[Rfam]
RNA: Archaeal large subunit ribosomal RNA, nucleotides 694 to 964
Organism: Aeropyrum pernix
RNA sequence: GAGUUCACGGCCGUGGCGAGCUUAAGGGGGUCAACCCCGUAGGCGCAGGGAAACCGACAGGCCCGCAGCCGGGGGCGACCCCGGCGAGGGGCGGGGUCCUAAUAGGGCCCGGAGUCACGGCCGUGAGACCAGAAACCGGGCGAUCUAGGCGGGGGCAGGGCGAAGCCGGGGGAAACCCCGGUGGAGGCCCGCAAGGGUGCUGACGUGCAAAUCGCUCCCCUGACCCCCGUCUAGGGGUGAAAGGCCAAUCUAGCCCGGAAGAUAGCUGGUU
Numbered sequence: 001g002a003g004u005u006c007a008c009g010g011c012c013g014u015g016g017c018g019a020g021c022u023u024a025a026g027g028g029g030g031u032c033a034a035c036c037c038c039g040u041a042g043g044c045g046c047a048g049g050g051a052a053a054c055c056g057a058c059a060g061g062c063c064c065g066c067a068g069c070c071g072g073g074g075g076c077g078a079c080c081c082c083g084g085c086g087a088g089g090g091g092c093g094g095g096g097u098c099c100u101a102a103u104a105g106g107g108c109c110c111g112g113a114g115u116c117a118c119g120g121c122c123g124u125g126a127g128a129c130c131a132g133a134a135a136c137c138g139g140g141c142g143a144u145c146u147a148g149g150c151g152g153g154g155g156c157a158g159g160g161c162g163a164a165g166c167c168g169g170g171g172g173a174a175a176c177c178c179c180g181g182u183g184g185a186g187g188c189c190c191g192c193a194a195g196g197g198u199g200c201u202g203a204c205g206u207g208c209a210a211a212u213c214g215c216u217c218c219c220c221u222g223a224c225c226c227c228c229g230u231c232u233a234g235g236g237g238u239g240a241a242a243g244g245c246c247a248a249u250c251u252a253g254c255c256c257g258g259a260a261g262a263u264a265g266c267u268g269g270u271u
Stems, first nucleotide, its partner, number of pairs: 005126013020044004026038004048055002061092004068085007095109004129269002132266001136258006145234011156222001158190004165182007195219003199215002202213002236246003